[Rfam]
RNA: Molybdenum/Tungsten riboswitch aptamer (Moco RNA motif)
RNA sequence: UUUGGGGGGGGCCCCCAAAAAACCCCCCCCCCCAAAAAAUUUUCUAUGGGGGGGGGGCCGGGGGCCCCCCCAAAAAAACCCCCCCCCUUUUGGGGGGGGGGGGGGGGGUUUGUCAUGCGGGAAAAACCCCCCCCUUUCCCCCCCUUUUUGUGGGAAGGGGGUUUUCCCCCCCCCUU
Numbered sequence: 001u002u003u004g005g006g007g008g009g010g011g012c013c014c015c016c017a018a019a020a021a022a023c024c025c026c027c028c029c030c031c032c033c034a035a036a037a038a039a040u041u042u043u044c045u046a047u048g049g050g051g052g053g054g055g056g057g058c059c060g061g062g063g064g065c066c067c068c069c070c071c072a073a074a075a076a077a078a079c080c081c082c083c084c085c086c087c088u089u090u091u092g093g094g095g096g097g098g099g100g101g102g103g104g105g106g107g108g109u110u111u112g113u114c115a116u117g118c119g120g121g122a123a124a125a126a127c128c129c130c131c132c133c134c135u136u137u138c139c140c141c142c143c144c145u146u147u148u149u150g151u152g153g154g155a156a157g158g159g160g161g162u163u164u165u166c167c168c169c170c171c172c173c174c175u176u
Base pairs, nucleotide, nucleotide: 004169006167011162012161013160014159015158016157023057024056025055026054027053028052029051030050031049032048036045038043060087061086062085063084064083092141093140094139095138096137097136098135099134100133101132102131103130104129105128106127142153143152